[Rfam]
RNA sequence: GGGGAUCUACGGAGCCCUACACACCCGGAUCGCAUCUGAUGCGAUCCUCAAGCUGACGGAAGACAGAGA
Numbered sequence: 001g002g003g004g005a006u007c008u009a010c011g012g013a014g015c016c017c018u019a020c021a022c023a024c025c026c027g028g029a030u031c032g033c034a035u036c037u038g039a040u041g042c043g044a045u046c047c048u049c050a051a052g053c054u055g056a057c058g059g060a061a062g063a064c065a066g067a068g069a
Stems, first nucleotide, its partner, number of pairs: 001018004006014001008012001027047007
Rfam assigns this 69-nucleotide RNA sequence from Szabonella alba to the family "L2-Alphaproteobacteria ribosomal protein leader". It scores 51 bits against the family's covariance model. It is annotated as a cis-regulatory leader.